[Rfam]
RNA sequence: UAAUAUAAUUGACUAAGAUCUCGUAUAAUCCCGGGAAUAUGGCUCGGGAGUCUCUACCAGGCAACCGUAAAUUGCCUGACUACGAGCGGAAGCGCUCCUCAG
Numbered sequence: 001u002a003a004u005a006u007a008a009u010u011g012a013c014u015a016a017g018a019u020c021u022c023g024u025a026u027a028a029u030c031c032c033g034g035g036a037a038u039a040u041g042g043c044u045c046g047g048g049a050g051u052c053u054c055u056a057c058c059a060g061g062c063a064a065c066c067g068u069a070a071a072u073u074g075c076c077u078g079a080c081u082a083c084g085a086g087c088g089g090a091a092g093c094g095c096u097c098c099u100c101a102g
Stems, first nucleotide, its partner, number of pairs: 020086006029049007058078007

Background: The family of this 102-nucleotide RNA from Dictyoglomus turgidum is "Purine riboswitch aptamer". Its family is annotated with purine nucleobase biosynthetic process in the Gene Ontology. The organism belongs to Dictyoglomus turgidum, within Bacteria.